A member of the RNA family "mir-33 microRNA precursor family" from Dendroctonus ponderosae, 66 nucleotides long. Rfam links the family to the GO terms RISC complex and gene silencing by miRNA. It scores 65 bits against the family's covariance model. The literature on the family includes a 2009 paper in BMC Genomics by Li et al., "Direct sequencing and expression analysis of a large number of miRNAs in Aedes aegypti and a multi-species survey of novel mosquito miRNAs".
RNA sequence: CAUUAGUGCAUUGUAGUUGCAUUGCAUGUUAUCUCGAAGUGCAGUGUUUCUUCAGUGCAAUUAAUG
Numbered sequence: 001c002a003u004u005a006g007u008g009c010a011u012u013g014u015a016g017u018u019g020c021a022u023u024g025c026a027u028g029u030u031a032u033c034u035c036g037a038a039g040u041g042c043a044g045u046g047u048u049u050c051u052u053c054a055g056u057g058c059a060a061u062u063a064a065u066g
Base pairs, nucleotide, nucleotide: 001066002065003064004063006062007059008058009057010056011055012054013053015051016050019047021045022044023043024042025041026040027039